[Rfam]
RNA sequence: CCCCCAAGGGGAAGCGAAGACCCUAUAGAGCUUUACUGCAGGCUGUCACUGAGACGUGGUCGCCAUUGUGCAGCAUAGGUAGGAGCCGUUACACAGGUACCCGCGCUAGCGGGCCACCGAGGCAGCAUUGAAAUACUACCCGAUGGUGACUGCGACUCUCACUCCUGGCGGAGGACACUGGUAGCCGGGCAGUUUGACUGGGGCGGUACGCGCUUGAAAAGAUAUCGAGCGCGCCCCAAGAUUUCCUCACCCGCGUCGGAGACGCGGGGAAGAGCGCAAGAGCAUACGGAAGUCUGACAGUGUCCGGCCUAACGACGGACGCUGACGCGAAAGCGUGGUCUAGCGAACCAAUUAGGCUGCUUGAUGCGGCCAAUUGCUGACAGAAAAGCUACCUUAGGGAUAACAGAGUCGUCACCCGCAAGAGCACAUAUCGACCGGGUGGCUUGCUACCUCGAUGUCGGUUCCCUCCAUCCUGCCCGUGCAGAAGCGGGCAAGGGUGAGGUUGUUCGCCUAUUAAAGGAGGUCGUGAGCUGGGUUUAGACCGUCGUGAGACAGGUCGGCUGCUAUCUAUUGGGGGUGUUAC
Numbered sequence: 001c002c003c004c005c006a007a008g009g010g011g012a013a014g015c016g017a018a019g020a021c022c023c024u025a026u027a028g029a030g031c032u033u034u035a036c037u038g039c040a041g042g043c044u045g046u047c048a049c050u051g052a053g054a055c056g057u058g059g060u061c062g063c064c065a066u067u068g069u070g071c072a073g074c075a076u077a078g079g080u081a082g083g084a085g086c087c088g089u090u091a092c093a094c095a096g097g098u099a100c101c102c103g104c105g106c107u108a109g110c111g112g113g114c115c116a117c118c119g120a121g122g123c124a125g126c127a128u129u130g131a132a133a134u135a136c137u138a139c140c141c142g143a144u145g146g147u148g149a150c151u152g153c154g155a156c157u158c159u160c161a162c163u164c165c166u167g168g169c170g171g172a173g174g175a176c177a178c179u180g181g182u183a184g185c186c187g188g189g190c191a192g193u194u195u196g197a198c199u200g201g202g203g204c205g206g207u208a209c210g211c212g213c214u215u216g217a218a219a220a221g222a223u224a225u226c227g228a229g230c231g232c233g234c235c236c237c238a239a240g241a242u243u244u245c246c247u248c249a250c251c252c253g254c255g256u257c258g259g260a261g262a263c264g265c266g267g268g269g270a271a272g273a274g275c276g277c278a279a280g281a282g283c284a285u286a287c288g289g290a291a292g293u294c295u296g297a298c299a300g301u302g303u304c305c306g307g308c309c310u311a312a313c314g315a316c317g318g319a320c321g322c323u324g325a326c327g328c329g330a331a332a333g334c335g336u337g338g339u340c341u342a343g344c345g346a347a348c349c350a351a352u353u354a355g356g357c358u359g360c361u362u363g364a365u366g367c368g369g370c371c372a373a374u375u376g377c378u379g380a381c382a383g384a385a386a387a388g389c390u391a392c393c394u395u396a397g398g399g400a401u402a403a404c405a406g407a408g409u410c411g412u413c414a415c416c417c418g419c420a421a422g423a424g425c426a427c428a429u430a431u432c433g434a435c436c437g438g439g440u441g442g443c444u445u446g447c448u449a450c451c452u453c454g455a456u457g458u459c460g461g462u463u464c465c466c467u468c469c470a471u472c473c474u475g476c477c478c479g480u481g482c483a484g485a486a487g488c489g490g491g492c493a494a495g496g497g498u499g500a501g502g503u504u505g506u507u508c509g510c511c512u513a514u515u516a517a518a519g520g521a522g523g524u525c526g527u528g529a530g531c532u533g534g535g536u537u538u539a540g541a542c543c544g545u546c547g548u549g550a551g552a553c554a555g556g557u558c559g560g561c562u563g564c565u566a567u568c569u570a571u572u573g574g575g576g577g578u579g580u581u582a583c
Stems, first nucleotide, its partner, number of pairs: 001577007010569003014564002022398004027394002029390005035193004042185007051158003055154014078140005085123003100113005162173004196209001197207003210232006235338002241293006247273002250268006274283002298324009326335001328333001349376005355371005407448003411445001412442007422432002459534001460532004464526001465523005472497002476491005500512004540558004544553003